Shown here is a 123-nucleotide RNA sequence from Ipomoea nil, a member of the family "MIR396 microRNA precursor family".
The family's consensus secondary structure was predicted with WAR.
The match comes from Rfam's covariance-model search (92 bits).
The family has 26 seed sequences and 744 matches in Rfam 15.1.
RNA sequence: CUUUGUAUUCUUCCACAGCUUUCUUGAACUGCAUCCAUGUCGAUUUUCUCCAAGAUCAGAUUUUCUUGGAUGUGAACGGCAAACUGUUUUGCGGUUCAAUAAAGCUGUGGGAAGAUACAGAAA
Numbered sequence: 001c002u003u004u005g006u007a008u009u010c011u012u013c014c015a016c017a018g019c020u021u022u023c024u025u026g027a028a029c030u031g032c033a034u035c036c037a038u039g040u041c042g043a044u045u046u047u048c049u050c051c052a053a054g055a056u057c058a059g060a061u062u063u064u065c066u067u068g069g070a071u072g073u074g075a076a077c078g079g080c081a082a083a084c085u086g087u088u089u090u091g092c093g094g095u096u097c098a099a100u101a102a103a104g105c106u107g108u109g110g111g112a113a114g115a116u117a118c119a120g121a122a123a
Stems, first nucleotide, its partner, number of pairs: 003120005013110003017106006024099004029094005